[Rfam]
RNA: Plastid-rps18 3UTR RNA
RNA sequence: UGCUACUAUUUUACGAUUAAGAAGCAACUGCCUUUUGUACAUAUUAUACAAUACAUU
Numbered sequence: 001u002g003c004u005a006c007u008a009u010u011u012u013a014c015g016a017u018u019a020a021g022a023a024g025c026a027a028c029u030g031c032c033u034u035u036u037g038u039a040c041a042u043a044u045u046a047u048a049c050a051a052u053a054c055a056u057u
Base pairs, nucleotide, nucleotide: 018037019036020035021034022033024031025030